[Rfam]
RNA sequence: GAGUUAUGAUGUGUGUAAAUCCUAUUCCAUUGCUGAAAUGCGGUGUGAAACACAAUGAUCUGAACUC
Dot-bracket structure: ((((...........................................................))))
Numbered sequence: 001g002a003g004u005u006a007u008g009a010u011g012u013g014u015g016u017a018a019a020u021c022c023u024a025u026u027c028c029a030u031u032g033c034u035g036a037a038a039u040g041c042g043g044u045g046u047g048a049a050a051c052a053c054a055a056u057g058a059u060c061u062g063a064a065c066u067c
Stems, first nucleotide, its partner, number of pairs: 001067004
The family of this 67-nucleotide RNA sequence from Cercocebus atys is "Small nucleolar RNA SNORD98". Taxonomically the source falls in Cercocebus (Eukaryota, Craniata, Euteleostomi, Theria). Rfam links the family to the GO terms RNA processing and nucleolus. It scores 78 bits against the family's covariance model. The family has 10 seed sequences and 571 matches in Rfam 15.1.